RNA: Small nucleolar RNA U49
Organism: Morus notabilis
RNA sequence: UCCCGAUGAGGAAGCACUCCCAAAAUUGAUAGGAAGUGCCGUAUGACACUUAAACCAGCGGCGGAGCA
Numbered sequence: 001u002c003c004c005g006a007u008g009a010g011g012a013a014g015c016a017c018u019c020c021c022a023a024a025a026u027u028g029a030u031a032g033g034a035a036g037u038g039c040c041g042u043a044u045g046a047c048a049c050u051u052a053a054a055c056c057a058g059c060g061g062c063g064g065a066g067c068a
Base pairs, nucleotide, nucleotide: 014062015061034051035050036049037048038047